Source information: Flavo-1 RNA: a 99-nucleotide RNA from Lacinutrix sp. 5H-3-7-4. It is annotated as a small RNA. Taxonomically the source falls in Lacinutrix (Bacteria, Bacteroidota, Flavobacteriia, Flavobacteriaceae). A search with the family's covariance model found it, with a score of 63 bits.

[Rfam]
RNA sequence: UUUUAGUUUCAUAUUGUGUGCGUUAGCGAUUGUAAUGGCAUCCUUUUUUUUGCUGCCGUAUAUGGCAAAAAAAAGAUAUAAUGAAAAGCGCGACCUUUU
Numbered sequence: 001u002u003u004u005a006g007u008u009u010c011a012u013a014u015u016g017u018g019u020g021c022g023u024u025a026g027c028g029a030u031u032g033u034a035a036u037g038g039c040a041u042c043c044u045u046u047u048u049u050u051u052g053c054u055g056c057c058g059u060a061u062a063u064g065g066c067a068a069a070a071a072a073a074a075g076a077u078a079u080a081a082u083g084a085a086a087a088g089c090g091c092g093a094c095c096u097u098u099u
Base pairs, nucleotide, nucleotide: 026091027090028089030087031086035082036081040077041076042075046072047071048070049069050068051067052066053065054064055063